[Rfam]
Overview:
This 74-nucleotide sequence from Sipha flava belongs to the Rfam family "mir-71 microRNA precursor family". The literature on the family includes a 2009 paper in BMC Genomics by Li et al., "Direct sequencing and expression analysis of a large number of miRNAs in Aedes aegypti and a multi-species survey of novel mosquito miRNAs". Gene Ontology terms of the family: RISC complex and miRNA-mediated post-transcriptional gene silencing. A search with the family's covariance model found it, with a score of 67 bits.
RNA sequence: GCCUGUUGAAAGACAUGGGUAGUGAGAUGCAAUAUUUUUAAAAGUUGUCUCACUAUCUUGUCUUUCAUGUUGCA
Numbered sequence: 001g002c003c004u005g006u007u008g009a010a011a012g013a014c015a016u017g018g019g020u021a022g023u024g025a026g027a028u029g030c031a032a033u034a035u036u037u038u039u040a041a042a043a044g045u046u047g048u049c050u051c052a053c054u055a056u057c058u059u060g061u062c063u064u065u066c067a068u069g070u071u072g073c074a
Stems, first nucleotide, its partner, number of pairs: 008066008017058003021054009